Small nucleolar RNA snoR97: a 104-nucleotide RNA from Paspalum vaginatum.
[Rfam]
RNA sequence: CUUGCGCGUUUUGUGUACAGACUGAAAACUCAGAGAGCAUGUGUUGUCAUCAACUUUAUCUCUUUUUUAUCGUUAGGGAAGAGUUAAAUAACAACAUUGGAUUG
Numbered sequence: 001c002u003u004g005c006g007c008g009u010u011u012u013g014u015g016u017a018c019a020g021a022c023u024g025a026a027a028a029c030u031c032a033g034a035g036a037g038c039a040u041g042u043g044u045u046g047u048c049a050u051c052a053a054c055u056u057u058a059u060c061u062c063u064u065u066u067u068u069a070u071c072g073u074u075a076g077g078g079a080a081g082a083g084u085u086a087a088a089u090a091a092c093a094a095c096a097u098u099g100g101a102u103u104g
Base pairs, nucleotide, nucleotide: 041097042096043095044094045093046092052085053084054083055082056081057080059077060076061075

A search with the family's covariance model found it, with a score of 64 bits. Rfam classes the family as an H/ACA-box small nucleolar RNA. NCBI's taxonomy places the organism under Eukaryota, Euphyllophyta, Mesangiospermae, Poales, Paspalum. Pairs were carried over by alignment from the consensus structure, which was predicted with WAR. On this family, see Marker et al., Curr Biol 2002: "Experimental RNomics: identification of 140 candidates for small non-messenger RNAs in the plant Arabidopsis thaliana".